A member of the RNA family "L31-Actinobacteria ribosomal protein leader" from Kitasatospora setae, 46 nucleotides long.
Lineage of the source: Bacteria > Bacillati > Actinomycetes > Kitasatosporales > Kitasatospora setae.
The family's RNA type in Rfam is cis-regulatory leader.
On this family, see Eckert and Weinberg, BMC Microbiol 2020: "Discovery of 20 novel ribosomal leader candidates in bacteria and archaea".
[Rfam]
RNA sequence: UCGGUCCCGGUUCACGAGCGGCUGUCCAGCCCGCCGACCCGGUGCC
Number, nucleotide and partner (000 for none) at each position: 001u000002c000003g046004g045005u044006c000007c042008c041009g040010g039011u000012u000013c000014a000015c036016g035017a000018g000019c000020g031021g030022c029023u028024g000025u000026c000027c000028a023029g022030c021031c020032c000033g000034c000035c016036g015037a000038c000039c010040c009041g008042g007043u000044g005045c004046c003